[Rfam]
RNA sequence: GGCUGGGGUCCAAAGGUAGUGAGUUAAGGCAAUUGAUUGUUCAUAGUCAGUUACAGAUUUAACUCCUUGUUCUACUCUUUCCCUUCUUCUCACUACUACACUUUCACUACUACACUUGACUAGUUUUAA
Numbered sequence: 001g002g003c004u005g006g007g008g009u010c011c012a013a014a015g016g017u018a019g020u021g022a023g024u025u026a027a028g029g030c031a032a033u034u035g036a037u038u039g040u041u042c043a044u045a046g047u048c049a050g051u052u053a054c055a056g057a058u059u060u061a062a063c064u065c066c067u068u069g070u071u072c073u074a075c076u077c078u079u080u081c082c083c084u085u086c087u088u089c090u091c092a093c094u095a096c097u098a099c100a101c102u103u104u105c106a107c108u109a110c111u112a113c114a115c116u117u118g119a120c121u122a123g124u125u126u127u128a129a
Stems, first nucleotide, its partner, number of pairs: 001125005008120003012117002016113002018108006
Rfam assigns this 129-nucleotide RNA from Pongo abelii to the family "Y RNA". For this family Rfam cites "5'-YRNA fragments derived by processing of transcripts from specific YRNA genes and pseudogenes are abundant in human serum and plasma" (Dhahbi et al., Physiol Genomics, 2013). A search with the family's covariance model found it, with a score of 49 bits.